[Rfam]
This 84-nucleotide RNA from Lupinus angustifolius belongs to the Rfam family "Small nucleolar RNA Z122". Its family is annotated with nucleolus and RNA processing in the Gene Ontology. By type it is a C/D-box small nucleolar RNA.
RNA sequence: UUUGGGAAGUGAUGCCAAAAACUCAAACAGAGGCGCCAGCUAUGCUGAAUCGAUUAUUUAUUUGCACGUCACUCUGAUCCCAAA
Number, nucleotide and partner (000 for none) at each position: 001u084002u083003u082004g081005g080006g079007a078008a000009g000010u000011g000012a000013u000014g000015c000016c000017a000018a000019a000020a000021a000022c000023u000024c000025a000026a000027a000028c000029a000030g000031a000032g000033g000034c000035g000036c000037c000038a000039g000040c000041u000042a000043u000044g000045c000046u000047g000048a000049a000050u000051c000052g000053a000054u000055u000056a000057u000058u000059u000060a000061u000062u000063u000064g000065c000066a000067c000068g000069u000070c000071a000072c000073u000074c000075u000076g000077a000078u007079c006080c005081c004082a003083a002084a001
It scores 56 bits against the family's covariance model. NCBI's taxonomy places the organism under Eukaryota, Viridiplantae, Gunneridae, genistoids sensu lato, Lupinus.